[Rfam]
RNA sequence: UUUACCGUGAGGUAUACGGUGAAGGAAGCGGGACUACAAAACUCAGUACAGAGGAACACGAACCGCAUACUGAGACUAAGAGACGGGAUAAGUAGGCACAUCACUGUGAAGUCCAAAAUGCUGUUUUUUCAUUAGGUGUUGAAAUAGUAGAUGUGGCAGGGAUCGGGGGAAAGAAGAUGUC
Dot-bracket structure: (.((((....)))).)...........(..(.....(....(((.((.(.(...........((((((......(((..((.((.((((..((((........))))...)))).....................)).)).....)))..))))))).).).).))).....)....)..)